[Rfam]
The family of this 68-nucleotide sequence from Carassius auratus is "miR-430 microRNA precursor family". The source organism's lineage runs through Eukaryota, Metazoa, Teleostomi, Actinopterygii and Carassius. For this family Rfam cites "MicroRNAs regulate brain morphogenesis in zebrafish" (Giraldez et al., Science, 2005). Rfam 15.1 lists 24,817 matches to the family in 105 species. It scores 49 bits against the family's covariance model.
RNA sequence: AAGAUUACUUCAAAUGGGGGCAUUGAUUGGUCCUAUGUUCAUAAGUGCUUCACUUUGGGGUAGUAGUA
Numbered sequence: 001a002a003g004a005u006u007a008c009u010u011c012a013a014a015u016g017g018g019g020g021c022a023u024u025g026a027u028u029g030g031u032c033c034u035a036u037g038u039u040c041a042u043a044a045g046u047g048c049u050u051c052a053c054u055u056u057g058g059g060g061u062a063g064u065a066g067u068a
Base pairs, nucleotide, nucleotide: 004064005063006062007061008060009059010058011057014055016053018051019049020048021047022046023045024044026042028041